Shown here is a 104-nucleotide sequence from Lederbergia citrea, a member of the family "c-di-GMP-I riboswitch aptamer". Rfam describes the family as follows. GEMM was predicted in a large-scale screen for bacterial structured RNA regulatory elements. Genes associated with GEMM are involved in a diverse array of functions, including chemotaxis regulation, signal transduction, secretion and chitin. A reference for the family is Weinberg et al. (2007), "Identification of 22 candidate structured RNAs in bacteria using the CMfinder comparative genomics pipeline", Nucleic Acids Res. The family is grouped with related families in Rfam's "c-di-GMP_I riboswitch clan". A search with the family's covariance model found it, with a score of 77 bits.
RNA sequence: CAAAGACAAAGGCAAACUAUCUGAAAGGAUAGGACGCAAAGCUUAGGGUCUAACGUUUAAUUAGGUGUAAAUAACUAUUAAACUAUGAUCGCCUGGUUACCAAU
Numbered sequence: 001c002a003a004a005g006a007c008a009a010a011g012g013c014a015a016a017c018u019a020u021c022u023g024a025a026a027g028g029a030u031a032g033g034a035c036g037c038a039a040a041g042c043u044u045a046g047g048g049u050c051u052a053a054c055g056u057u058u059a060a061u062u063a064g065g066u067g068u069a070a071a072u073a074a075c076u077a078u079u080a081a082a083c084u085a086u087g088a089u090c091g092c093c094u095g096g097u098u099a100c101c102a103a104u
Stems, first nucleotide, its partner, number of pairs: 012037002017032006040098004045094003048089003055083007